[Rfam]
Rfam assigns this 86-nucleotide sequence from Enterobius vermicularis to the family "Selenocysteine transfer RNA". It scores 69 bits against the family's covariance model. The base pairs follow the family's consensus structure, which is taken from published work.
RNA sequence: GUCCGGGUGAACCUCGGUGGACCGGGGAGUAGGCUUCAAACCUGCGGCCGCUUUGCAGCGGAGUGGUUCGAUUCCACCUCCUGGGC
Numbered sequence: 001g002u003c004c005g006g007g008u009g010a011a012c013c014u015c016g017g018u019g020g021a022c023c024g025g026g027g028a029g030u031a032g033g034c035u036u037c038a039a040a041c042c043u044g045c046g047g048c049c050g051c052u053u054u055g056c057a058g059c060g061g062a063g064u065g066g067u068u069c070g071a072u073u074c075c076a077c078c079u080c081c082u083g084g085g086c
Stems, first nucleotide, its partner, number of pairs: 001086007009078001012027006029045005048061005063077004